[Rfam]
RNA: Small nucleolar RNA snR35
RNA sequence: AAAUAUAAUUAAUCGUGCGGAUUAAUAAUCCAGGACUCUAAAACCGUGUUGUUUAAAUUGAUCAUGCGUUGAUUUAAGCGUCAAGUCCAUCGGAGAGAUCAUCAUGUUCAUCUUAAUGCCCUUUUGUAUGAGCCACUUUUGCUGCAUUAUAGGUACCUUUGGGUAUUUAUGGUGUGGUAUAUAGCUUUUGCAAGGGCUGGUAGGACAGACAUUC
Numbered sequence: 001a002a003a004u005a006u007a008a009u010u011a012a013u014c015g016u017g018c019g020g021a022u023u024a025a026u027a028a029u030c031c032a033g034g035a036c037u038c039u040a041a042a043a044c045c046g047u048g049u050u051g052u053u054u055a056a057a058u059u060g061a062u063c064a065u066g067c068g069u070u071g072a073u074u075u076a077a078g079c080g081u082c083a084a085g086u087c088c089a090u091c092g093g094a095g096a097g098a099u100c101a102u103c104a105u106g107u108u109c110a111u112c113u114u115a116a117u118g119c120c121c122u123u124u125u126g127u128a129u130g131a132g133c134c135a136c137u138u139u140u141g142c143u144g145c146a147u148u149a150u151a152g153g154u155a156c157c158u159u160u161g162g163g164u165a166u167u168u169a170u171g172g173u174g175u176g177g178u179a180u181a182u183a184g185c186u187u188u189u190g191c192a193a194g195g196g197c198u199g200g201u202a203g204g205a206c207a208g209a210c211a212u213u214c
Stems, first nucleotide, its partner, number of pairs: 008026007029094003033088004051079012111205005118197005125192004130187003142177004153166005